[Rfam]
RNA sequence: CUCCUCGAAAGCUAUUUAGGUAGCGCCUCGUGUAUCACUGUCGGGGGUAGAGCACUGUUUCGGCUAGGGGGUCAUACCGACUUACCAAACCGAUGCAAACUUCGAAUACCGGCAAGUGCAAGCACGGGAGACACACGGCGAGUGCUAACAUCCGUCGUGAAGAGGGAAACAACCCAGACCGCCAGCUAAGGCCCCCAAGUCAUGGCUAAGUGGAAAACGAUGUGGGAAGGCAUAGACAGCCAGGAGGUUGGCUUAGAAGCAGCCAUCCUUUAAAGAAAGCGUAAUAGCUCACUGGUCGAGUCGGCCCGCGCGGAAAAUUCAACGGGGCUAAGCCAUGCGCCGAAGCUGCGGACUUGGCAUUGCCAAGUGGUAGAGGAGCGUUCCGUAAGCCUGUGAAGGUGUGUCGCGAGGCAUGCUGGAGGUAUCGGAAGUGCGAAU
Numbered sequence: 001c002u003c004c005u006c007g008a009a010a011g012c013u014a015u016u017u018a019g020g021u022a023g024c025g026c027c028u029c030g031u032g033u034a035u036c037a038c039u040g041u042c043g044g045g046g047g048u049a050g051a052g053c054a055c056u057g058u059u060u061c062g063g064c065u066a067g068g069g070g071g072u073c074a075u076a077c078c079g080a081c082u083u084a085c086c087a088a089a090c091c092g093a094u095g096c097a098a099a100c101u102u103c104g105a106a107u108a109c110c111g112g113c114a115a116g117u118g119c120a121a122g123c124a125c126g127g128g129a130g131a132c133a134c135a136c137g138g139c140g141a142g143u144g145c146u147a148a149c150a151u152c153c154g155u156c157g158u159g160a161a162g163a164g165g166g167a168a169a170c171a172a173c174c175c176a177g178a179c180c181g182c183c184a185g186c187u188a189a190g191g192c193c194c195c196c197a198a199g200u201c202a203u204g205g206c207u208a209a210g211u212g213g214a215a216a217a218c219g220a221u222g223u224g225g226g227a228a229g230g231c232a233u234a235g236a237c238a239g240c241c242a243g244g245a246g247g248u249u250g251g252c253u254u255a256g257a258a259g260c261a262g263c264c265a266u267c268c269u270u271u272a273a274a275g276a277a278a279g280c281g282u283a284a285u286a287g288c289u290c291a292c293u294g295g296u297c298g299a300g301u302c303g304g305c306c307c308g309c310g311c312g313g314a315a316a317a318u319u320c321a322a323c324g325g326g327g328c329u330a331a332g333c334c335a336u337g338c339g340c341c342g343a344a345g346c347u348g349c350g351g352a353c354u355u356g357g358c359a360u361u362g363c364c365a366a367g368u369g370g371u372a373g374a375g376g377a378g379c380g381u382u383c384c385g386u387a388a389g390c391c392u393g394u395g396a397a398g399g400u401g402u403g404u405c406g407c408g409a410g411g412c413a414u415g416c417u418g419g420a421g422g423u424a425u426c427g428g429a430a431g432u433g434c435g436a437a438u
Base pairs, nucleotide, nucleotide: 001378002377003376004375005374006373011024012023013022014021015020026130027128028127029126030125031124032123033122035121036118037117038116039114040113041112042111043110044109050103051101052100056097057096058095060093061092062091063090067086068085069083070082071081072080073079134159135158136157137156138155139154140153142151143150164175165174166173179351180350181349182348184347185346186345190341191340192339199338201337202336203335204334205333206332218312219311222309223308224307225306226305229302230301231300239296240295241294242293243292245269246268247267250264251263252262270274275290279288280287352368353367354366355365356364357363358362379433381430382429383428384427385426389423390422391421398417399416400415401414402413403412404411405410